The family of this 104-nucleotide sequence from Saliterribacillus persicus is "SAM riboswitch aptamer (S box leader)".
Gene Ontology term of the family: regulation of gene expression.
NCBI's taxonomy places the organism under Bacteria, Bacillati, Bacillota, Caryophanales, Saliterribacillus.
RNA sequence: UUCUUAUCAAGAGUGGAGGAGGAAUCUGGUCCUAUGAUCCCACGGCAACCUAUUUCCGAAAUAAGGUGCCCAUUCCAGCAGGCCUAAAGCCUGAAAGAUAAGGG
Numbered sequence: 001u002u003c004u005u006a007u008c009a010a011g012a013g014u015g016g017a018g019g020a021g022g023a024a025u026c027u028g029g030u031c032c033u034a035u036g037a038u039c040c041c042a043c044g045g046c047a048a049c050c051u052a053u054u055u056c057c058g059a060a061a062u063a064a065g066g067u068g069c070c071c072a073u074u075c076c077a078g079c080a081g082g083c084c085u086a087a088a089g090c091c092u093g094a095a096a097g098a099u100a101a102g103g104g
Stems, first nucleotide, its partner, number of pairs: 001104008013043004021032003026078004044070004049066002051063004074096001079093005